RNA sequence: AGCUGUUCCCCUCUGGAGGUUUUGACCUUCAAACUUAUCAGGCCGCGGGAAAUAUCCAGCGGCCUUUUUUUUGCCGAUG
Numbered sequence: 001a002g003c004u005g006u007u008c009c010c011c012u013c014u015g016g017a018g019g020u021u022u023u024g025a026c027c028u029u030c031a032a033a034c035u036u037a038u039c040a041g042g043c044c045g046c047g048g049g050a051a052a053u054a055u056c057c058a059g060c061g062g063c064c065u066u067u068u069u070u071u072u073g074c075c076g077a078u079g
Stems, first nucleotide, its partner, number of pairs: 008018001010016002041064006048057002
RNA: Makes More Granules Regulator RNA (mmgR)